[Rfam]
RNA sequence: AGUGAGCAUAGAGGUGCAAAGAUCAUAAGUACGUUACAUGAAGCUAAUGAGUGCUAGUGAUUGUAAUGGAAAGGGAGAUUUGCCGAAGUGAACCAAGAACUCAUUAUCUUGUUUCACUGGUGCUGUAUUUAAUAAAUCCAGUGCUGUCAUAUAGCUAAUUGUUUGCUAUAUGGAGGGCUAUCUCACGC
Numbered sequence: 001a002g003u004g005a006g007c008a009u010a011g012a013g014g015u016g017c018a019a020a021g022a023u024c025a026u027a028a029g030u031a032c033g034u035u036a037c038a039u040g041a042a043g044c045u046a047a048u049g050a051g052u053g054c055u056a057g058u059g060a061u062u063g064u065a066a067u068g069g070a071a072a073g074g075g076a077g078a079u080u081u082g083c084c085g086a087a088g089u090g091a092a093c094c095a096a097g098a099a100c101u102c103a104u105u106a107u108c109u110u111g112u113u114u115c116a117c118u119g120g121u122g123c124u125g126u127a128u129u130u131a132a133u134a135a136a137u138c139c140a141g142u143g144c145u146g147u148c149a150u151a152u153a154g155c156u157a158a159u160u161g162u163u164u165g166c167u168a169u170a171u172g173g174a175g176g177g178c179u180a181u182c183u184c185a186c187g188c
Stems, first nucleotide, its partner, number of pairs: 006183001008181004016083005023076002032068007087118006094111005119145007127137003147173009
RNA: Lysine riboswitch aptamer
Organism: Paraliobacillus quinghaiensis